[Rfam]
RNA sequence: CAACCGGAUAGCCCGACGGGGCGAAAAGCGGGUUUCGUCAGCUCGUUUCCGGUUUUCCAUUCUGACGG
Number, nucleotide and partner (000 for none) at each position: 001c000002a054003a053004c052005c051006g050007g049008a048009u000010a000011g022012c021013c020014c019015g000016a000017c000018g000019g014020g013021g012022c011023g000024a000025a000026a000027a000028g046029c045030g044031g043032g042033u000034u000035u000036c068037g000038u000039c000040a000041g000042c032043u031044c030045g029046u028047u000048u008049c007050c006051g005052g004053u003054u002055u000056u000057c000058c000059a000060u000061u000062c000063u000064g000065a000066c000067g000068g036
RNA: int-alpA RNA
Organism: Methylomonas sp. DH-1